[Rfam]
A member of the RNA family "mir-544 microRNA precursor family" from Neomonachus schauinslandi, 92 nucleotides long. The organism belongs to Neomonachus, within Eukaryota. A search with the family's covariance model found it, with a score of 73 bits.

RNA sequence: AUUACCUAGGGCUCUUGUUAAGAUGCAGAUUCUCAUUCAGUAGGUCUGAGGCCCAGGGUUCUGCAUUCUAGCAAGCUCCCAGGUAAUGUCAA
Numbered sequence: 001a002u003u004a005c006c007u008a009g010g011g012c013u014c015u016u017g018u019u020a021a022g023a024u025g026c027a028g029a030u031u032c033u034c035a036u037u038c039a040g041u042a043g044g045u046c047u048g049a050g051g052c053c054c055a056g057g058g059u060u061c062u063g064c065a066u067u068c069u070a071g072c073a074a075g076c077u078c079c080c081a082g083g084u085a086a087u088g089u090c091a092a
Stems, first nucleotide, its partner, number of pairs: 003085003009079003014075007021067001023066001025064005031058003
The family has 16 seed sequences and 10,750 matches in Rfam 15.1. For this family Rfam cites "Mammalian microRNAs: experimental evaluation of novel and previously annotated genes" (Chiang et al., Genes Dev, 2010). The family's consensus secondary structure was predicted with RNAalifold.